[Rfam]
RNA sequence: UAUUCAUUUAUUUAAAUCAAACCUGUUGUGAUUUAAGUGAAUGAGUUUUCAUUCACCAUACUGUUUGCUGAGCUUGACUCCGGGCAGUAUGGCAUUUUU
Number, nucleotide and partner (000 for none) at each position: 001u000002a046003u045004u044005c043006a042007u041008u040009u039010a038011u037012u036013u035014a034015a033016a032017u031018c030019a029020a000021a000022c000023c000024u000025g000026u000027u000028g000029u019030g018031a017032u016033u015034u014035a013036a012037g011038u010039g009040a008041a007042u006043g005044a004045g003046u002047u000048u000049u000050c000051a000052u000053u000054c000055a000056c092057c091058a090059u089060a088061c087062u086063g085064u084065u083066u082067g081068c000069u000070g080071a079072g078073c000074u000075u000076g000077a000078c072079u071080c070081c067082g066083g065084g064085c063086a062087g061088u060089a059090u058091g057092g056093c000094a000095u000096u000097u000098u000099u000